[Rfam]
Shown here is a 59-nucleotide sequence from Pristionchus pacificus, a member of the family "mir-8229 microRNA precursor family".
RNA sequence: CUUUGUCUUCACGAGGCUGAACGCGAUAUUGAAAGCGAUCGCAUCGUGAGAGGCUAAGG
Number, nucleotide and partner (000 for none) at each position: 001c058002u057003u056004u000005g054006u053007c052008u051009u049010c048011a047012c046013g045014a044015g000016g042017c041018u000019g040020a039021a000022c037023g036024c035025g000026a000027u000028a000029u000030u000031g000032a000033a000034a000035g024036c023037g022038a000039u020040c019041g017042c016043a000044u014045c013046g012047u011048g010049a009050g000051a008052g007053g006054c005055u000056a003057a002058g001059g000
Taxonomically the source falls in Pristionchus (Eukaryota, Bilateria, Protostomia, Neodiplogasteridae).